[Rfam]
MIR6288 microRNA precursor family: a 92-nucleotide RNA sequence from Notothenia coriiceps.
RNA sequence: UAAUCGCAAAUUAAUCGCACAUUUUUGAUCUGUUCUAAAAGUACUAAGGUACUUUUAGAACAGAUCAAAAAUGUGCGAUUAAUUUGCGAUUA
Numbered sequence: 001u002a003a004u005c006g007c008a009a010a011u012u013a014a015u016c017g018c019a020c021a022u023u024u025u026u027g028a029u030c031u032g033u034u035c036u037a038a039a040a041g042u043a044c045u046a047a048g049g050u051a052c053u054u055u056u057a058g059a060a061c062a063g064a065u066c067a068a069a070a071a072u073g074u075g076c077g078a079u080u081a082a083u084u085u086g087c088g089a090u091u092a
Stems, first nucleotide, its partner, number of pairs: 002091038
The family's consensus secondary structure was predicted with RNAalifold. Taxonomically the source falls in Notothenia (Eukaryota, Deuterostomia, Gnathostomata, Eurypterygia). Gene Ontology terms of the family: miRNA-mediated post-transcriptional gene silencing and RISC complex. The match comes from Rfam's covariance-model search (74 bits).